[Rfam]
RNA sequence: UCUUCGUUUCGCACACUAUCUCGCCUCUCUGACCGCCGAGAGAGUGUGUGAAAUGAAGAGA
Number, nucleotide and partner (000 for none) at each position: 001u059002c058003u057004u056005c055006g054007u053008u000009u000010c050011g000012c048013a047014c046015a045016c044017u043018a000019u041020c040021u039022c038023g000024c000025c000026u000027c000028u000029c000030u000031g000032a000033c000034c000035g000036c000037c000038g022039a021040g020041a019042g000043a017044g016045u015046g014047u013048g012049u000050g010051a000052a000053a007054u006055g005056a004057a003058g002059a001060g000061a000
The family of this 61-nucleotide RNA sequence from Pristionchus pacificus is "mir-8364 microRNA precursor family". The source organism's lineage runs through Eukaryota, Opisthokonta, Bilateria, Protostomia and Pristionchus.